[Rfam]
RNA sequence: UGAAACUAAAACAAUGAAAGCCCUGCCUCUCUUCCAUCCUUGCGGCUCCGAAGACCGCGCCAGUGUGAAUCAGUACAAACCACAGUUG
Numbered sequence: 001u002g003a004a005a006c007u008a009a010a011a012c013a014a015u016g017a018a019a020g021c022c023c024u025g026c027c028u029c030u031c032u033u034c035c036a037u038c039c040u041u042g043c044g045g046c047u048c049c050g051a052a053g054a055c056c057g058c059g060c061c062a063g064u065g066u067g068a069a070u071c072a073g074u075a076c077a078a079a080c081c082a083c084a085g086u087u088g
Base pairs, nucleotide, nucleotide: 035067036066039063040062041059042058043057044056045055047053
Dot-bracket structure: ..................................((..(((((((.(.....).)))))..))..)).....................
Background
Rfam assigns this 88-nucleotide RNA sequence from Paenibacillus mucilaginosus to the family "BsrC". About the family: The 301 nucleotide sequence from Kouji Nakamura has been trimmed to a highly conserved ~85 nucleotide long core to form this family. The base pairs follow the family's consensus structure, which was predicted with CMfinder.